This 129-nucleotide sequence from Rhinolophus ferrumequinum belongs to the Rfam family "Small nucleolar RNA SNORA47". NCBI's taxonomy places the organism under Eukaryota, Metazoa, Gnathostomata, Laurasiatheria, Rhinolophus. The family's consensus secondary structure was predicted with WAR. Rfam 15.1 lists 733 matches to the family in 635 species. By type it is an H/ACA-box small nucleolar RNA.

RNA sequence: CGGAGGACUGAGAAGGUGAGGCAGGCCUGUACCGUGCUGCCUUCCACUGGUUAAGACCUCCAAGAGCAAAGGCCACCAAAAGUCCCUCUGCCACCCUUGGAGGGGCAGCGCUGUGCUGGCCGACAUUUG
Numbered sequence: 001c002g003g004a005g006g007a008c009u010g011a012g013a014a015g016g017u018g019a020g021g022c023a024g025g026c027c028u029g030u031a032c033c034g035u036g037c038u039g040c041c042u043u044c045c046a047c048u049g050g051u052u053a054a055g056a057c058c059u060c061c062a063a064g065a066g067c068a069a070a071g072g073c074c075a076c077c078a079a080a081a082g083u084c085c086c087u088c089u090g091c092c093a094c095c096c097u098u099g100g101a102g103g104g105g106c107a108g109c110g111c112u113g114u115g116c117u118g119g120c121c122g123a124c125a126u127u128u129g
Stems, first nucleotide, its partner, number of pairs: 002061005015048004019042006072121001074119001080114001082112001088108005094103002